[Rfam]
RNA: transfer-messenger RNA
Organism: Sphaerisporangium melleum
RNA sequence: GGGGGUGACCGGUUUCGACUUCGGCAUGUCGUGCCAGGGGAAGCGGGUCGAGGACUGCGGACAUAACCUCGUUAAUCCUGUGACCGCAAAACAAUAAGUGCCAAUAACACGCGCACUCAGGGCCACAUGGCCCUCGCCGCCUGAGCGAGGUCUAGGCCCUUGUCAGCCCGGGAUCGCCUCCGGCCCGGAUCUGGCAUCGCUAGGAGGCUCAACCGCUCGCCCCGGUCACGGGGGCGAUAGGGAAACCUAACAGUGACUGAGCCCGUCGGCGACUCGCCUGCGAGAUCGCCGGGGCCGAGAAAAGCGCUGCAGGCUGCACCCGGAGAAGCCCUGACGCGGUGUUGAAGGACGCGGGUUCGAUUCCCGCCACCUCCACUC
Numbered sequence: 001g002g003g004g005g006u007g008a009c010c011g012g013u014u015u016c017g018a019c020u021u022c023g024g025c026a027u028g029u030c031g032u033g034c035c036a037g038g039g040g041a042a043g044c045g046g047g048u049c050g051a052g053g054a055c056u057g058c059g060g061a062c063a064u065a066a067c068c069u070c071g072u073u074a075a076u077c078c079u080g081u082g083a084c085c086g087c088a089a090a091a092c093a094a095u096a097a098g099u100g101c102c103a104a105u106a107a108c109a110c111g112c113g114c115a116c117u118c119a120g121g122g123c124c125a126c127a128u129g130g131c132c133c134u135c136g137c138c139g140c141c142u143g144a145g146c147g148a149g150g151u152c153u154a155g156g157c158c159c160u161u162g163u164c165a166g167c168c169c170g171g172g173a174u175c176g177c178c179u180c181c182g183g184c185c186c187g188g189a190u191c192u193g194g195c196a197u198c199g200c201u202a203g204g205a206g207g208c209u210c211a212a213c214c215g216c217u218c219g220c221c222c223c224g225g226u227c228a229c230g231g232g233g234g235c236g237a238u239a240g241g242g243a244a245a246c247c248u249a250a251c252a253g254u255g256a257c258u259g260a261g262c263c264c265g266u267c268g269g270c271g272a273c274u275c276g277c278c279u280g281c282g283a284g285a286u287c288g289c290c291g292g293g294g295c296c297g298a299g300a301a302a303a304g305c306g307c308u309g310c311a312g313g314c315u316g317c318a319c320c321c322g323g324a325g326a327a328g329c330c331c332u333g334a335c336g337c338g339g340u341g342u343u344g345a346a347g348g349a350c351g352c353g354g355g356u357u358c359g360a361u362u363c364c365c366g367c368c369a370c371c372u373c374c375a376c377u378c
Stems, first nucleotide, its partner, number of pairs: 001374007019347009031337003035333005044322005049071005056088005062082001136151003140147001161196006168188005174182001176208006213241002217237005224258006261295004267291003276314004280308001351367005